This 127-nucleotide RNA sequence from Asaccharospora irregularis belongs to the Rfam family "Ribosomal protein L10 leader".
A reference for the family is Zengel and Lindahl (1994), "Diverse mechanisms for regulating ribosomal protein synthesis in Escherichia coli", Prog Nucleic Acid Res Mol Biol.
This family is a putative r-protein leader autoregulatory structure found in B. subtilis and other low-GC Gram-positive bacteria.
The family's RNA type in Rfam is cis-regulatory leader.
RNA sequence: UAAAAUAGAAUAGAUUUGCCGUAGACAGUGGGUGCUUAGGCUUAAUACCCCACCGAGGUUUUAGAUAAAUUGAGAUUACUAAAGCUUUUGAUGUCUACUUUGACUCAAAAGCUUUUUUUAAUUUUGC
Numbered sequence: 001u002a003a004a005a006u007a008g009a010a011u012a013g014a015u016u017u018g019c020c021g022u023a024g025a026c027a028g029u030g031g032g033u034g035c036u037u038a039g040g041c042u043u044a045a046u047a048c049c050c051c052a053c054c055g056a057g058g059u060u061u062u063a064g065a066u067a068a069a070u071u072g073a074g075a076u077u078a079c080u081a082a083a084g085c086u087u088u089u090g091a092u093g094u095c096u097a098c099u100u101u102g103a104c105u106c107a108a109a110a111g112c113u114u115u116u117u118u119u120a121a122u123u124u125u126g127c
Stems, first nucleotide, its partner, number of pairs: 028053005034041002084112008